[Rfam]
RNA sequence: AGAUGAUGAUGAUUCUAUUCUUGAUAUUACUGACCAGUGGGUAGUUGAAGAUAAAGAUGAGGAGGCAGCAUGCUGCCUAAAUCU
Numbered sequence: 001a002g003a004u005g006a007u008g009a010u011g012a013u014u015c016u017a018u019u020c021u022u023g024a025u026a027u028u029a030c031u032g033a034c035c036a037g038u039g040g041g042u043a044g045u046u047g048a049a050g051a052u053a054a055a056g057a058u059g060a061g062g063a064g065g066c067a068g069c070a071u072g073c074u075g076c077c078u079a080a081a082u083c084u
Stems, first nucleotide, its partner, number of pairs: 001084003042075004
Dot-bracket structure: (((......................................((((..........................))))......)))
The family of this 84-nucleotide RNA from Arabidopsis thaliana is "Small nucleolar RNA R43". The literature on the family includes a 2001 paper in J Mol Biol by Barneche et al., "Identification of 66 box C/D snoRNAs in Arabidopsis thaliana: extensive gene duplications generated multiple isoforms predicting new ribosomal RNA 2'-O-methylation sites". By type it is a C/D-box small nucleolar RNA. The source organism's lineage runs through Eukaryota, Euphyllophyta, Mesangiospermae, rosids and Arabidopsis.